[Rfam]
RNA sequence: GGUUCUGAUCAGUUUUGCUGGUUUGCAUUCAGCGUUCGGUCAGAAAACACGGCUGUGCAAAUCCAUGCAAAACUGAUCGUAGCU
Numbered sequence: 001g002g003u004u005c006u007g008a009u010c011a012g013u014u015u016u017g018c019u020g021g022u023u024u025g026c027a028u029u030c031a032g033c034g035u036u037c038g039g040u041c042a043g044a045a046a047a048c049a050c051g052g053c054u055g056u057g058c059a060a061a062u063c064c065a066u067g068c069a070a071a072a073c074u075g076a077u078c079g080u081a082g083c084u
Base pairs, nucleotide, nucleotide: 003082004081006079007078008077009076010075011074012073013072014071015070016069017068018067020064021063022061023060024059025058026057027056028055031054032053033052